[Rfam]
RNA sequence: GAAGGAGCAAUACCAACCUCUUGAUAAAACAAGAAAUGCGGUAUUGCUCCUUCAACA
Numbered sequence: 001g002a003a004g005g006a007g008c009a010a011u012a013c014c015a016a017c018c019u020c021u022u023g024a025u026a027a028a029a030c031a032a033g034a035a036a037u038g039c040g041g042u043a044u045u046g047c048u049c050c051u052u053c054a055a056c057a
Stems, first nucleotide, its partner, number of pairs: 001053014019034005

The family of this 57-nucleotide sequence from Protea cynaroides is "Plastid-psbA-3 3UTR RNA". The family's consensus secondary structure was predicted with LocARNA. Plastid psbA-3 is a non-coding RNA (ncRNA) present in plastids. It was identified in inverted repeat sequences in the 3 prime untranslate region (3UTR) of photosystem II quinone-binding protein (psbA). The match comes from Rfam's covariance-model search (59 bits). The source organism's lineage runs through Eukaryota, Tracheophyta, Euphyllophyta, Proteales and Protea. By type it is a cis-regulatory element.